[Rfam]
RNA sequence: GCCAGAGAAGGGCAAACCCGUCGUGAGGCGGGGACGCAAAGCCACGGGGCCUCACCGCCAGGCGAGGCAGCCCGGCCACCGAA
Numbered sequence: 001g002c003c004a005g006a007g008a009a010g011g012g013c014a015a016a017c018c019c020g021u022c023g024u025g026a027g028g029c030g031g032g033g034a035c036g037c038a039a040a041g042c043c044a045c046g047g048g049g050c051c052u053c054a055c056c057g058c059c060a061g062g063c064g065a066g067g068c069a070g071c072c073c074g075g076c077c078a079c080c081g082a083a
Stems, first nucleotide, its partner, number of pairs: 012037002017032006041076003046073003049068003

The record is an 83-nucleotide sequence from Kineococcus xinjiangensis, which matches "c-di-GMP-I riboswitch aptamer" in Rfam. A search with the family's covariance model found it, with a score of 54 bits. NCBI's taxonomy places the organism under Bacteria, Bacillati, Actinomycetota, Kineosporiaceae, Kineococcus.